[Rfam]
RNA sequence: AACUAUUAAUAAAGAUACCGUCGUAUAAUUUUGGGAAUAUGGCCCAAGAGUUUCUACUAGACUACCGUAAAUGGUCUGACUACGCUGGUGAUUUUGCAAAUG
Dot-bracket structure: .................(((.((((...(((((((.......)))))))........(((((((.......)))))))..)))).)))..............
Description: The family of this 102-nucleotide RNA from Aquibacillus salsiterrae is "Purine riboswitch aptamer". The base pairs follow the family's consensus structure, which is taken from published work. The match comes from Rfam's covariance-model search (88 bits). Lineage of the source: Bacteria > Bacillati > Bacillota > Bacilli > Aquibacillus.